The record is a 137-nucleotide sequence from Tursiops truncatus, which matches "Small nucleolar RNA SNORA42/SNORA80 family" in Rfam. Rfam's curators write: The members of this family belong to the H/ACA class of snoRNAs that guide the sites of modification of uridines to pseudouridines. Human ACA42 (SNORA42) was cloned from HeLa cells by immunoprecipitation with anti-GAR1 antibody. Its is predicted to guide the pseudouridylation of residues U109 and U572 of 18S rRNA. ACA42 shares the same host gene with ACA26, ACA46, ACA50. A search with the family's covariance model found it, with a score of 96 bits. Taxonomically the source falls in Tursiops (Eukaryota, Bilateria, Vertebrata, Teleostomi). For this family Rfam cites "A computational screen for mammalian pseudouridylation guide H/ACA RNAs" (Schattner et al., RNA, 2006).

[Rfam]
RNA sequence: GCAAGGUAAUGGAUUUAUGACACAUCCUCCUCUGUGGGAGUCUCAUACUGUACGCAUGCCGGAGAAAAUUGCAGCCUUGAACGAUUGCCCAGUCUCCUUGCCUGUGGGCUGUGAGCACUGAAAGGGGUUGUAUAGUG
Numbered sequence: 001g002c003a004a005g006g007u008a009a010u011g012g013a014u015u016u017a018u019g020a021c022a023c024a025u026c027c028u029c030c031u032c033u034g035u036g037g038g039a040g041u042c043u044c045a046u047a048c049u050g051u052a053c054g055c056a057u058g059c060c061g062g063a064g065a066a067a068a069u070u071g072c073a074g075c076c077u078u079g080a081a082c083g084a085u086u087g088c089c090c091a092g093u094c095u096c097c098u099u100g101c102c103u104g105u106g107g108g109c110u111g112u113g114a115g116c117a118c119u120g121a122a123a124g125g126g127g128u129u130g131u132a133u134a135g136u137g
Stems, first nucleotide, its partner, number of pairs: 001059003006053003016047005022041002025037002072130006084119001088115001090111006